[Rfam]
RNA: Guanidine-II riboswitch aptamer (mini-ykkC)
RNA sequence: CAGCGAGGACGACCUCGCUUUUCAUGAAACUUGGCCGGGACGACCCGC
Numbered sequence: 001c002a003g004c005g006a007g008g009a010c011g012a013c014c015u016c017g018c019u020u021u022u023c024a025u026g027a028a029a030c031u032u033g034g035c036c037g038g039g040a041c042g043a044c045c046c047g048c
Stems, first nucleotide, its partner, number of pairs: 002019007036047004